[Rfam]
RNA sequence: AGUGUAGAGAAGGGUGAAAAUGCUGUGUUCUGUCAGGUAAUUCUCCCUUCUCUUACUGU
Numbered sequence: 001a002g003u004g005u006a007g008a009g010a011a012g013g014g015u016g017a018a019a020a021u022g023c024u025g026u027g028u029u030c031u032g033u034c035a036g037g038u039a040a041u042u043c044u045c046c047c048u049u050c051u052c053u054u055a056c057u058g059u
Base pairs, nucleotide, nucleotide: 002056003055004054006053007052008051009050010049011048013047014046016044018042022038023037024036
Description: This 59-nucleotide RNA sequence from Monodelphis domestica belongs to the Rfam family "mir-7398 microRNA precursor family". The source organism's lineage runs through Eukaryota, Eumetazoa, Vertebrata, Tetrapoda and Monodelphis. The family's consensus secondary structure was predicted with RNAalifold. Gene Ontology terms of the family: miRNA-mediated post-transcriptional gene silencing and RISC complex. It is one of the family's seed sequences.